[Rfam]
Rfam assigns this 185-nucleotide RNA from Marinomonas hwangdonensis to the family "FMN riboswitch aptamer (RFN element)". The RFN element is a highly conserved domain that is found frequently in the 5'-untranslated regions of prokaryotic mRNAs that encode for flavin mononucleotide (FMN) biosynthesis and transport proteins. NCBI's taxonomy places the organism under Bacteria, Pseudomonadati, Gammaproteobacteria, Oceanospirillaceae, Marinomonas. Pairs were carried over by alignment from the consensus structure, which is taken from published work.
RNA sequence: AUCGAACUUCGGGGCGGGGCGAAAUUCCCCACCGGCGGUGAUUUUCACUGGAUUAAUCAUCUAGUGAAACAGCCCGCGAGCGCCUUGUUUCUUGUUUUAAGCAAUGCUUUUUUAAGGAACAAGGGUCAGCAGAUUUGGUGAGACUCCAGAGCCGACGGUCACAGUCCGGAUGAUAGAAGAUCGAC
Numbered sequence: 001a002u003c004g005a006a007c008u009u010c011g012g013g014g015c016g017g018g019g020c021g022a023a024a025u026u027c028c029c030c031a032c033c034g035g036c037g038g039u040g041a042u043u044u045u046c047a048c049u050g051g052a053u054u055a056a057u058c059a060u061c062u063a064g065u066g067a068a069a070c071a072g073c074c075c076g077c078g079a080g081c082g083c084c085u086u087g088u089u090u091c092u093u094g095u096u097u098u099a100a101g102c103a104a105u106g107c108u109u110u111u112u113u114a115a116g117g118a119a120c121a122a123g124g125g126u127c128a129g130c131a132g133a134u135u136u137g138g139u140g141a142g143a144c145u146c147c148a149g150a151g152c153c154g155a156c157g158g159u160c161a162c163a164g165u166c167c168g169g170a171u172g173a174u175a176g177a178a179g180a181u182c183g184a185c
Base pairs, nucleotide, nucleotide: 003183004182005181007179008178009177010176017029018028019027031165032164033154034153035077036076037075038074072152073151080130081129134150135149136148137147138146156168157167158166
Dot-bracket structure: ..(((.((((......(((.......))).[[((((((.................................[[))))..((...............................................))...(((((.......)))))]])).(((.....]]))).......)))).)))..